[Rfam]
The family of this 126-nucleotide sequence from Caenorhabditis elegans is "C. elegans sRNA ceN115".
The source organism's lineage runs through Eukaryota, Opisthokonta, Nematoda, Rhabditoidea and Caenorhabditis.
By type it is a small RNA.
It scores 116 bits against the family's covariance model.
Pairs were carried over by alignment from the consensus structure, which was predicted with WAR.
RNA sequence: CAGUUCGCCAAGUCGGAUGGAGCGUUCGAGUUUCGUGCUUCGGUGCGUCUCUCGGAGAGCCAAAACAAACCCAAGAAAUUGCUCCCCGUCUUUAAAUUUUGGAAAAGGCUCCCAAUAGGGACCCGG
Numbered sequence: 001c002a003g004u005u006c007g008c009c010a011a012g013u014c015g016g017a018u019g020g021a022g023c024g025u026u027c028g029a030g031u032u033u034c035g036u037g038c039u040u041c042g043g044u045g046c047g048u049c050u051c052u053c054g055g056a057g058a059g060c061c062a063a064a065a066c067a068a069a070c071c072c073a074a075g076a077a078a079u080u081g082c083u084c085c086c087c088g089u090c091u092u093u094a095a096a097u098u099u100u101g102g103a104a105a106a107g108g109c110u111c112c113c114a115a116u117a118g119g120g121a122c123c124c125g126g
Stems, first nucleotide, its partner, number of pairs: 008102003011091002014088003019085005025056006034047005107124002110121004